[Rfam]
RNA sequence: UGCUGGUCGUAAAGCACUCUCUCUCAGAACACUGGGCCUUGCCAGGGGUAAGCCAUGCAAGCUGUCUGUCCAGAGCG
Numbered sequence: 001u002g003c004u005g006g007u008c009g010u011a012a013a014g015c016a017c018u019c020u021c022u023c024u025c026a027g028a029a030c031a032c033u034g035g036g037c038c039u040u041g042c043c044a045g046g047g048g049u050a051a052g053c054c055a056u057g058c059a060a061g062c063u064g065u066c067u068g069u070c071c072a073g074a075g076c077g
Base pairs, nucleotide, nucleotide: 001077002076003075004074